[Rfam]
Shown here is a 121-nucleotide sequence from Helianthus annuus, a member of the family "Small nucleolar RNA snoR111".
The family's consensus secondary structure was predicted with WAR.
By type it is an H/ACA-box small nucleolar RNA.
The match comes from Rfam's covariance-model search (43 bits).
The literature on the family includes a 2002 paper in Curr Biol by Marker et al., "Experimental RNomics: identification of 140 candidates for small non-messenger RNAs in the plant Arabidopsis thaliana".
The organism belongs to Helianthus, within Eukaryota.
Rfam 15.1 lists 533 matches to the family in 223 species.
RNA sequence: UUAAUUGGAUGACAUUUUAAAACAGAAAUGAUACUUGAAACAAAUUGGCUGUGGAUCGAGUGAGUUGAUGGAUCGGAUGGCCAUCCGUUCGGAUGGCCAUCCGAUCGGUGAUCAUCUACAU
Numbered sequence: 001u002u003a004a005u006u007g008g009a010u011g012a013c014a015u016u017u018u019a020a021a022a023c024a025g026a027a028a029u030g031a032u033a034c035u036u037g038a039a040a041c042a043a044a045u046u047g048g049c050u051g052u053g054g055a056u057c058g059a060g061u062g063a064g065u066u067g068a069u070g071g072a073u074c075g076g077a078u079g080g081c082c083a084u085c086c087g088u089u090c091g092g093a094u095g096g097c098c099a100u101c102c103g104a105u106c107g108g109u110g111a112u113c114a115u116c117u118a119c120a121u
Base pairs, nucleotide, nucleotide: 006038008036009035013030014029015028016027017026018025063117064116066114067113068112069111072105073104074103075102077100078099079098080097081096082095083094085092086091